[Rfam]
RNA sequence: GGUAGUAGCAAAUAUUCAAAUGCGAACUUUGAAGACUGAAGUGGAGAAAGGUUCCAUGUGAACAGUAAUUGGACAUGGGUGAGUCGAUCCUAAGAGAUAGGAGAAUUCCGUUUGAAAGUGGAUUGUUUUGGCAGUGUUUUCGGAUGCUGUUUGCCGCAGUCCCGCUUAUCGAAAGGGAAGCCGGUUAAUAUUCCGGCACCGAGACGUGGAUAAUGUGUGGUAACACAAACGAGUCAGAAGACGCUAGCGUGUGCCCAGGGAAGAGUUCUCUUUUCUUUUUAACAUGCAUUUCCUACCCUGGAAUCGGAUUACCCGGCGAUAGGGAGGAAGCCAUGGCAAAGCACCUUGAUUUUUAGGGUGUCCUGCGCGCUCACGACGGCCCUUGAAAAUUCUGAUGAGAGAUUUAUUCGCACCCUCGUUCGUACUCAUAACCGCAUCAGGUCUCCAAGGUUAGCAGCCUCUAGUUGA
Numbered sequence: 001g002g003u004a005g006u007a008g009c010a011a012a013u014a015u016u017c018a019a020a021u022g023c024g025a026a027c028u029u030u031g032a033a034g035a036c037u038g039a040a041g042u043g044g045a046g047a048a049a050g051g052u053u054c055c056a057u058g059u060g061a062a063c064a065g066u067a068a069u070u071g072g073a074c075a076u077g078g079g080u081g082a083g084u085c086g087a088u089c090c091u092a093a094g095a096g097a098u099a100g101g102a103g104a105a106u107u108c109c110g111u112u113u114g115a116a117a118g119u120g121g122a123u124u125g126u127u128u129u130g131g132c133a134g135u136g137u138u139u140u141c142g143g144a145u146g147c148u149g150u151u152u153g154c155c156g157c158a159g160u161c162c163c164g165c166u167u168a169u170c171g172a173a174a175g176g177g178a179a180g181c182c183g184g185u186u187a188a189u190a191u192u193c194c195g196g197c198a199c200c201g202a203g204a205c206g207u208g209g210a211u212a213a214u215g216u217g218u219g220g221u222a223a224c225a226c227a228a229a230c231g232a233g234u235c236a237g238a239a240g241a242c243g244c245u246a247g248c249g250u251g252u253g254c255c256c257a258g259g260g261a262a263g264a265g266u267u268c269u270c271u272u273u274u275c276u277u278u279u280u281a282a283c284a285u286g287c288a289u290u291u292c293c294u295a296c297c298c299u300g301g302a303a304u305c306g307g308a309u310u311a312c313c314c315g316g317c318g319a320u321a322g323g324g325a326g327g328a329a330g331c332c333a334u335g336g337c338a339a340a341g342c343a344c345c346u347u348g349a350u351u352u353u354u355a356g357g358g359u360g361u362c363c364u365g366c367g368c369g370c371u372c373a374c375g376a377c378g379g380c381c382c383u384u385g386a387a388a389a390u391u392c393u394g395a396u397g398a399g400a401g402a403u404u405u406a407u408u409c410g411c412a413c414c415c416u417c418g419u420u421c422g423u424a425c426u427c428a429u430a431a432c433c434g435c436a437u438c439a440g441g442u443c444u445c446c447a448a449g450g451u452u453a454g455c456a457g458c459c460u461c462u463a464g465u466u467g468a
Stems, first nucleotide, its partner, number of pairs: 015033006034466004043446004049426002054078006063071002085422003089176002094170002096112003100109003120162007180197005200418004206413003210408001216227004234395006243380003248375004253370002256365003259279006283335004296324005304316004342360007432441002448460004